[Rfam]
RNA sequence: UUCUGUUAGCGGUUGAAGCGGCAUCCUGCUGCAAAAAUCCUGAAAGGUUUUUGUGGCAGAUAUAGCGGAAAGCGCGACCCUGA
Numbered sequence: 001u002u003c004u005g006u007u008a009g010c011g012g013u014u015g016a017a018g019c020g021g022c023a024u025c026c027u028g029c030u031g032c033a034a035a036a037a038u039c040c041u042g043a044a045a046g047g048u049u050u051u052u053g054u055g056g057c058a059g060a061u062a063u064a065g066c067g068g069a070a071a072g073c074g075c076g077a078c079c080c081u082g083a
Base pairs, nucleotide, nucleotide: 009075010074011073013071014070018066019065023061024060025059028057029056030055031054032053033052034051035050036049037048038047039046
The family of this 83-nucleotide RNA sequence from Flavobacterium aurantiibacter is "Flavo-1 RNA". The family has 201 seed sequences and 7,497 matches in Rfam 15.1.